The record is a 600-nucleotide part of an RNA from Emericellopsis atlantica, which matches "Eukaryotic small subunit ribosomal RNA" in Rfam. NCBI's taxonomy places the organism under Eukaryota, Fungi, leotiomyceta, Bionectriaceae, Emericellopsis. The match comes from Rfam's covariance-model search (1790 bits). The family's consensus secondary structure is taken from published work.
[Rfam]
RNA sequence: UAUCUGGUUGAUUCUGCCAGUAGUCAUAUGCUUGUCUCAAAGAUUAAGCCAUGCAUGUCUAAGUAUAAGCAAUUAUACGGCGAAACUGCGAAUGGCUCAUUAUAUAAGUUAUCGUUUAUUUGAUAGUACCUUACUACUUGGAUAACCGUGGUAAUUCUAGAGCUAAUACAUGCUAAAAACCCCGACUUCGGAAGGGGUGUAUUUAUUAGAUUAAAAACCAAUGCCCUUCGGGGCUCCUUGGUGAUUCAUGAUAACUUCUCGAAUCGCAUGGCCUUGCGCCGGCGAUGGUUCAUUCAAAUUUCUUCCCUAUCAACUUUCGAUGUUUGGGUAUUGGCCAAACAUGGUUGCAACGGGUAACGGAGGGUUAGGGCUCGACCCCGGAGAAGGAGCCUGAGAAACGGCUACUACAUCCAAGGAAGGCAGCAGGCGCGCAAAUUACCCAAUCCCGACUCGGGGAGGUAGUGACAAUAAAUACUGAUACAGGGCUCUUUAGGGUCUUGUAAUUGGAAUGAGUACAAUUUAAAUCCCUUAACGAGGAACAAUUGGAGGGCAAGUCUGGUGCCAGCAGCCGCGGUAAUUCCAGCUCCAAUAGCGUAUAUU
Numbered sequence: 001u002a003u004c005u006g007g008u009u010g011a012u013u014c015u016g017c018c019a020g021u022a023g024u025c026a027u028a029u030g031c032u033u034g035u036c037u038c039a040a041a042g043a044u045u046a047a048g049c050c051a052u053g054c055a056u057g058u059c060u061a062a063g064u065a066u067a068a069g070c071a072a073u074u075a076u077a078c079g080g081c082g083a084a085a086c087u088g089c090g091a092a093u094g095g096c097u098c099a100u101u102a103u104a105u106a107a108g109u110u111a112u113c114g115u116u117u118a119u120u121u122g123a124u125a126g127u128a129c130c131u132u133a134c135u136a137c138u139u140g141g142a143u144a145a146c147c148g149u150g151g152u153a154a155u156u157c158u159a160g161a162g163c164u165a166a167u168a169c170a171u172g173c174u175a176a177a178a179a180c181c182c183c184g185a186c187u188u189c190g191g192a193a194g195g196g197g198u199g200u201a202u203u204u205a206u207u208a209g210a211u212u213a214a215a216a217a218c219c220a221a222u223g224c225c226c227u228u229c230g231g232g233g234c235u236c237c238u239u240g241g242u243g244a245u246u247c248a249u250g251a252u253a254a255c256u257u258c259u260c261g262a263a264u265c266g267c268a269u270g271g272c273c274u275u276g277c278g279c280c281g282g283c284g285a286u287g288g289u290u291c292a293u294u295c296a297a298a299u300u301u302c303u304u305c306c307c308u309a310u311c312a313a314c315u316u317u318c319g320a321u322g323u324u325u326g327g328g329u330a331u332u333g334g335c336c337a338a339a340c341a342u343g344g345u346u347g348c349a350a351c352g353g354g355u356a357a358c359g360g361a362g363g364g365u366u367a368g369g370g371c372u373c374g375a376c377c378c379c380g381g382a383g384a385a386g387g388a389g390c391c392u393g394a395g396a397a398a399c400g401g402c403u404a405c406u407a408c409a410u411c412c413a414a415g416g417a418a419g420g421c422a423g424c425a426g427g428c429g430c431g432c433a434a435a436u437u438a439c440c441c442a443a444u445c446c447c448g449a450c451u452c453g454g455g456g457a458g459g460u461a462g463u464g465a466c467a468a469u470a471a472a473u474a475c476u477g478a479u480a481c482a483g484g485g486c487u488c489u490u491u492a493g494g495g496u497c498u499u500g501u502a503a504u505u506g507g508a509a510u511g512a513g514u515a516c517a518a519u520u521u522a523a524a525u526c527c528c529u530u531a532a533c534g535a536g537g538a539a540c541a542a543u544u545g546g547a548g549g550g551c552a553a554g555u556c557u558g559g560u561g562c563c564a565g566c567a568g569c570c571g572c573g574g575u576a577a578u579u580c581c582a583g584c585u586c587c588a589a590u591a592g593c594g595u596a597u598a599u600u
Stems, first nucleotide, its partner, number of pairs: 004020005022600003026597007035470001037468001041463001042430001048428003052425003057089002062087003069081002096383003106304003111299002115297002121292003137172001139170002146162001149159003179198005186191001203254006217242004224233003264285004269281004306354003313345003320342008358380003362373004385406002388403003408419001410417002436461001438460003444456005476506003479502010513533002515530001517529001543589006556583004565572002